[Rfam]
RNA sequence: AACUGUUGCAAGUUCCCGAAAGGAUUCGCCUUUUGCGAAGAUGCCUUGUAACCGAAUAUUUUUUAGGGGGAAUAAAAACCAUG
Number, nucleotide and partner (000 for none) at each position: 001a000002a000003c000004u000005g000006u000007u000008g000009c000010a000011a000012g000013u072014u071015c070016c069017c068018g000019a000020a047021a046022g045023g044024a000025u039026u038027c037028g036029c035030c000031u000032u000033u000034u000035g029036c028037g027038a026039a025040g000041a000042u000043g000044c023045c022046u021047u020048g000049u000050a000051a000052c067053c066054g000055a000056a000057u000058a000059u000060u000061u000062u000063u000064u000065a000066g053067g052068g017069g016070g015071a014072a013073u000074a000075a000076a000077a000078a000079c000080c000081a000082u000083g000